[Rfam]
RNA sequence: AAUAGGAGAAUGAUAAAUUAGAUUUUUCUUCUUAUUUUCAGCUUUUUUCUCCUGUAAAAAUUCAAAUCCAACUAAAAAAAGAUAAAAAUCAAGAGGAAAAAUCCGAUUUAUCAUUCUCCUAUU
Dot-bracket structure: (((((((((((((((((((.(((((((.((.(.(((((.(...((((...........................))))....).))))).).))..))))))).)))))))))))))))))))
MIR7504 microRNA precursor family: a 123-nucleotide sequence from Gossypium stocksii. It scores 97 bits against the family's covariance model. The family has 8 seed sequences and 7,343 matches in Rfam 15.1. Gene Ontology terms of the family: miRNA-mediated post-transcriptional gene silencing and RISC complex.